[Rfam]
RNA sequence: CGCCGCGACACGGGAGAGCGUCGUGACCCGCGAGGGUCUCGGCCGCCGAAGGAGCAACACCUCUCCGCCAAUCUCUCAGGCCCCAGGACCGUGUCGUACGC
Numbered sequence: 001c002g003c004c005g006c007g008a009c010a011c012g013g014g015a016g017a018g019c020g021u022c023g024u025g026a027c028c029c030g031c032g033a034g035g036g037u038c039u040c041g042g043c044c045g046c047c048g049a050a051g052g053a054g055c056a057a058c059a060c061c062u063c064u065c066c067g068c069c070a071a072u073c074u075c076u077c078a079g080g081c082c083c084c085a086g087g088a089c090c091g092u093g094u095c096g097u098a099c100g101c
Stems, first nucleotide, its partner, number of pairs: 006096008020043004045081003048077002052075003

The family of this 101-nucleotide RNA from Williamsia sp. Leaf354 is "Glycine riboswitch aptamer". Pairs were carried over by alignment from the consensus structure. NCBI's taxonomy places the organism under Bacteria, Actinomycetota, Actinomycetes, Mycobacteriales, Williamsia.